[Rfam]
The family of this 80-nucleotide RNA sequence from Geotrypetes seraphini is "mir-306 microRNA precursor family". The match comes from Rfam's covariance-model search (53 bits). On this family, see Aravin et al., Dev Cell 2003: "The small RNA profile during Drosophila melanogaster development".
RNA sequence: CUGCAAAUCGCAAAGGCACAAAGUGCCUAUCAGUAUUUCUCGCCGUACUGAUAGGCACUUUGUGCCUUUGCAAUUUGCAG
Dot-bracket structure: ((((((.(.((.(((((((..((((((((((((((..........))))))))))))))..))))))).)).)).)))))
Numbered sequence: 001c002u003g004c005a006a007a008u009c010g011c012a013a014a015g016g017c018a019c020a021a022a023g024u025g026c027c028u029a030u031c032a033g034u035a036u037u038u039c040u041c042g043c044c045g046u047a048c049u050g051a052u053a054g055g056c057a058c059u060u061u062g063u064g065c066c067u068u069u070g071c072a073a074u075u076u077g078c079a080g
Stems, first nucleotide, its partner, number of pairs: 001080005006074001008073001010071002013068007022059014
The family's consensus secondary structure was predicted with RNAalifold.